Description
The record is an 80-nucleotide RNA sequence from Scyliorhinus torazame, which matches "mir-27 microRNA precursor family" in Rfam. It scores 78 bits against the family's covariance model. For this family Rfam cites "MicroRNA profile of Marek's disease virus-transformed T-cell line MSB-1: predominance of virus-encoded microRNAs" (Yao et al., J Virol, 2008). The base pairs follow the family's consensus structure, which was predicted with RNAalifold.
Nucleotides: 080
Stems, first nucleotide, its partner, number of pairs: 011070010026057007
Number, partner (000 for none) and nucleotide at each position: 001000u002000u003000g004000c005000g006000g007000u008000a009000c010000a011070g012069g013068g014067c015066u016065u017064a018063g019062c020061u021000a022000a023000c024000u025000u026057g027056u028055g029054a030053a031052c032051a033000g034000a035000g036000u037000u038000g039000u040000a041000a042000u043000g044000g045000u046000c047000u048000c049000c050000u051032u052031g053030u054029u055028c056027a057026c058000a059000g060000u061020g062019g063018c064017u065016a066015a067014g068013u069012u070011c071000c072000g073000c074000a075000c076000c077000u078000c079000u080000c